[Rfam]
RNA sequence: AAUUGAUAGGAUGUCUUUGCCUUCGGUCAGUCCAACCAUCCAACAUAAGAGAACUCUCUUAUGUUGGAUGGUUGGACUGACCGAAGGCAAAGACAUCUCAUCAAUU
Numbered sequence: 001a002a003u004u005g006a007u008a009g010g011a012u013g014u015c016u017u018u019g020c021c022u023u024c025g026g027u028c029a030g031u032c033c034a035a036c037c038a039u040c041c042a043a044c045a046u047a048a049g050a051g052a053a054c055u056c057u058c059u060u061a062u063g064u065u066g067g068a069u070g071g072u073u074g075g076a077c078u079g080a081c082c083g084a085a086g087g088c089a090a091a092g093a094c095a096u097c098u099c100a101u102c103a104a105u106u
Base pairs, nucleotide, nucleotide: 002105003104004103005102012095013094014093015092016091017090018089019088020087022085023084024083025082026081027080028079029078030077031076032075033074034073035072036071037070038069039068040067041066042065043064044063045062046061047060048059049058050057

The record is a 106-nucleotide sequence from Kalanchoe fedtschenkoi, which matches "MIR6274 microRNA precursor family" in Rfam. The family has 2 seed sequences and 342 matches in Rfam 15.1. The family's consensus secondary structure was predicted with RNAalifold. The source organism's lineage runs through Eukaryota, Streptophytina, Embryophyta, Gunneridae and Kalanchoe. The match comes from Rfam's covariance-model search (80 bits).